[Rfam]
RNA sequence: GCAUGGCUGAAUUCUGCACUAGCUUUCCUCAGUAGCUAAUGCAGUCAGACACCAUGCCAGAGCAAAUUCCUUUUUCCCUCUGCUUGAUGUGCCUUUCCUCUGGGAAUGGGCAUGCCCUUGGAAGGGGAAGACAUAU
Numbered sequence: 001g002c003a004u005g006g007c008u009g010a011a012u013u014c015u016g017c018a019c020u021a022g023c024u025u026u027c028c029u030c031a032g033u034a035g036c037u038a039a040u041g042c043a044g045u046c047a048g049a050c051a052c053c054a055u056g057c058c059a060g061a062g063c064a065a066a067u068u069c070c071u072u073u074u075u076c077c078c079u080c081u082g083c084u085u086g087a088u089g090u091g092c093c094u095u096u097c098c099u100c101u102g103g104g105a106a107u108g109g110g111c112a113u114g115c116c117c118u119u120g121g122a123a124g125g126g127g128a129a130g131a132c133a134u135a136u
Stems, first nucleotide, its partner, number of pairs: 001057006014044005070125001073124004083120001086116001088114007
Dot-bracket structure: ((((((.......(((((.....................))))).......))))))............(..((((......(..(.(((((((.............))))))).)...))))))...........